Shown here is a 152-nucleotide RNA from Glycine soja, a member of the family "MIR1520 microRNA precursor family". Gene Ontology terms of the family: RISC complex and miRNA-mediated post-transcriptional gene silencing. Its Rfam clan is "MIR1520 microRNA precursor clan".

RNA sequence: UUCUUAUUGGAUUAUGACUGUCACGUGUUAUAUUUUGAUUAAAUGUCAACUUCAUGAAAGAUGAAAUACAUUGUUGUCGUCAUUGGUUAAUAAAAAAAUGAAUUGUGAAAGUUAUGAUUCAAUAAGAACGUGAUGCGUGACAGCCAACAUUC
Numbered sequence: 001u002u003c004u005u006a007u008u009g010g011a012u013u014a015u016g017a018c019u020g021u022c023a024c025g026u027g028u029u030a031u032a033u034u035u036u037g038a039u040u041a042a043a044u045g046u047c048a049a050c051u052u053c054a055u056g057a058a059a060g061a062u063g064a065a066a067u068a069c070a071u072u073g074u075u076g077u078c079g080u081c082a083u084u085g086g087u088u089a090a091u092a093a094a095a096a097a098a099u100g101a102a103u104u105g106u107g108a109a110a111g112u113u114a115u116g117a118u119u120c121a122a123u124a125a126g127a128a129c130g131u132g133a134u135g136c137g138u139g140a141c142a143g144c145c146a147a148c149a150u151u152c
Base pairs, nucleotide, nucleotide: 020141021140022139023138025136026135029132030131031130033128034127035126036125038123039122040121